The record is a 100-nucleotide RNA from Desulfosporosinus orientis, which matches "Pyrrolysine insertion sequence mttB" in Rfam. Rfam's curators put it in the seed alignment. Rfam 15.1 lists 416 matches to the family in 326 species. Rfam links the family to the GO term pyrrolysine incorporation.

[Rfam]
RNA sequence: UAGGCAGACAGUAAAGUACCCGAUGCACAAGCCGCCCACGAAAAAACCAUAACGGGAUUAUUAGCUGCUCUAGGCGGAGCAAACUUAAUCUAUGGUUUGG
Numbered sequence: 001u002a003g004g005c006a007g008a009c010a011g012u013a014a015a016g017u018a019c020c021c022g023a024u025g026c027a028c029a030a031g032c033c034g035c036c037c038a039c040g041a042a043a044a045a046a047c048c049a050u051a052a053c054g055g056g057a058u059u060a061u062u063a064g065c066u067g068c069u070c071u072a073g074g075c076g077g078a079g080c081a082a083a084c085u086u087a088a089u090c091u092a093u094g095g096u097u098u099g100g
Stems, first nucleotide, its partner, number of pairs: 003012001025032001034061001077098001079096002